[Rfam]
RNA: c-di-AMP riboswitch aptamer (ydaO/yuaA leader)
RNA sequence: GCACGGCCUCCGCCGAGUCCGGCGUGCCCUCGCGGCAACCGGAGCCGGGGACCCACCGAGACCUUGGGGUGAAUCGGCUCACUCCCCUCCGGGGAGGACGAGCCGUAGGGCAACCCUUCCAGACCGCCCGAACCCGACAGCUAACCCGGUAGGCGGAAACUGGAAGGAGU
Number, nucleotide and partner (000 for none) at each position: 001g000002c000003a000004c000005g000006g000007c000008c000009u000010c000011c155012g154013c153014c152015g000016a000017g000018u043019c042020c041021g040022g039023c000024g000025u000026g000027c000028c000029c000030u000031c000032g000033c000034g000035g000036c000037a000038a000039c022040c021041g020042g019043a018044g150045c149046c148047g147048g146049g145050g000051a000052c000053c000054c066055a065056c000057c000058g000059a000060g000061a000062c000063c000064u000065u055066g054067g135068g134069g133070u000071g000072a000073a000074u000075c105076g104077g103078c102079u101080c100081a000082c000083u000084c000085c000086c000087c000088u000089c000090c000091g000092g000093g000094g000095a000096g000097g000098a000099c000100g080101a079102g078103c077104c076105g075106u000107a000108g129109g128110g127111c126112a000113a000114c000115c000116c000117u000118u000119c000120c000121a000122g000123a000124c000125c000126g111127c110128c109129c108130g000131a000132a000133c069134c068135c067136g000137a000138c000139a000140g000141c000142u000143a000144a000145c049146c048147c047148g046149g045150u044151a000152g014153g013154c012155g011156g000157a000158a000159a000160c000161u000162g000163g000164a000165a000166g000167g000168a000169g000170u000